[Rfam]
Shown here is a 295-nucleotide sequence from Pieris macdunnoughi, a member of the family "Nuclear RNase P".

RNA sequence: CCAAUGAUAAUCUCGUACAUGGGGUGUACAUGCUGAGUGUUUAUCACUUCUUCCACCCCGGGAAGGUCUGAGUAAAGGUCCUGUGUUUUAACUACAUUCUAGCCGGAUGCUUCCAUUAUAAGGAAGGUGGGGAAACCAGAAAUUACAGUUUUGUAUUUAGCCUAUGAUUCCCAAAAAGUUGGUUGUGGAAGAGGUGCAGAUACUAUAAUUGUUGGAAUUUCCCAUGACCAGCCAUUUUAGCAUGAUCUACGAGAUGACAUAAGUCAUAACUCAAUUCAGACUAGUCUUUCAUUGG
Numbered sequence: 001c002c003a004a005u006g007a008u009a010a011u012c013u014c015g016u017a018c019a020u021g022g023g024g025u026g027u028a029c030a031u032g033c034u035g036a037g038u039g040u041u042u043a044u045c046a047c048u049u050c051u052u053c054c055a056c057c058c059c060g061g062g063a064a065g066g067u068c069u070g071a072g073u074a075a076a077g078g079u080c081c082u083g084u085g086u087u088u089u090a091a092c093u094a095c096a097u098u099c100u101a102g103c104c105g106g107a108u109g110c111u112u113c114c115a116u117u118a119u120a121a122g123g124a125a126g127g128u129g130g131g132g133a134a135a136c137c138a139g140a141a142a143u144u145a146c147a148g149u150u151u152u153g154u155a156u157u158u159a160g161c162c163u164a165u166g167a168u169u170c171c172c173a174a175a176a177a178g179u180u181g182g183u184u185g186u187g188g189a190a191g192a193g194g195u196g197c198a199g200a201u202a203c204u205a206u207a208a209u210u211g212u213u214g215g216a217a218u219u220u221c222c223c224a225u226g227a228c229c230a231g232c233c234a235u236u237u238u239a240g241c242a243u244g245a246u247c248u249a250c251g252a253g254a255u256g257a258c259a260u261a262a263g264u265c266a267u268a269a270c271u272c273a274a275u276u277c278a279g280a281c282u283a284g285u286c287u288u289u290c291a292u293u294g295g
Base pairs, nucleotide, nucleotide: 001295002294003293004292007289009287012253013252014251015250016249017248021059022058023057024056025055035049036048037047038046039045068279069278070277071276072275077229078228079227080226095109096108097107098106099105110126111125112124113123114122127225128224129223130222131221132220133219146211147210148209149208150207254267255266256265257264258263